[Rfam]
RNA sequence: AUGAUUGUAUGGGGAGAGCGCGCAUUAGGCGCCGCCGAAGGAGCAAGUAACGAAUGUUAUGAAUCUCUCAGGUAACAAAACGCAUACAUGACG
Numbered sequence: 001a002u003g004a005u006u007g008u009a010u011g012g013g014g015a016g017a018g019c020g021c022g023c024a025u026u027a028g029g030c031g032c033c034g035c036c037g038a039a040g041g042a043g044c045a046a047g048u049a050a051c052g053a054a055u056g057u058u059a060u061g062a063a064u065c066u067c068u069c070a071g072g073u074a075a076c077a078a079a080a081c082g083c084a085u086a087c088a089u090g091a092c093g
Stems, first nucleotide, its partner, number of pairs: 006088006013081001020032004034073003037069002041067003047060002
Dot-bracket structure: .....((((((.(......((((.....)))).(((((..(((...((..........))....))))).))).......).)))))).....

A member of the RNA family "Glycine riboswitch aptamer" from Sporosarcina sp. P19, 93 nucleotides long. Rfam's curators write: This family represents the bacterial glycine riboswitch. For this family Rfam cites "A glycine-dependent riboswitch that uses cooperative binding to control gene expression" (Mandal et al., Science, 2004).